[Rfam]
RNA sequence: ACAAAAAAUCGGCCCCCGUCUCGCGACGAGGGCCUUUCAUGGGAGAGGAGAAACCGGACGAAGAGCUUAUGGGGAAACGUAAGUCUUCUCCGCGG
Numbered sequence: 001a002c003a004a005a006a007a008a009u010c011g012g013c014c015c016c017c018g019u020c021u022c023g024c025g026a027c028g029a030g031g032g033c034c035u036u037u038c039a040u041g042g043g044a045g046a047g048g049a050g051a052a053a054c055c056g057g058a059c060g061a062a063g064a065g066c067u068u069a070u071g072g073g074g075a076a077a078c079g080u081a082a083g084u085c086u087u088c089u090c091c092g093c094g095g
Stems, first nucleotide, its partner, number of pairs: 011034005017028003035043003055092004060088004065084005
The record is a 95-nucleotide RNA from Paenibacillus contaminans, which matches "ylbH leader" in Rfam. From the family's description: This family is a putative regulatory RNA structure that is found upstream of the ylbH gene in B. subtilis and related low GC Gram-positive bacteria. The family's RNA type in Rfam is cis-regulatory leader. Lineage of the source: Bacteria > Bacillati > Bacillota > Caryophanales > Paenibacillus. It scores 69 bits against the family's covariance model. The pairing is the family consensus, mapped onto this sequence.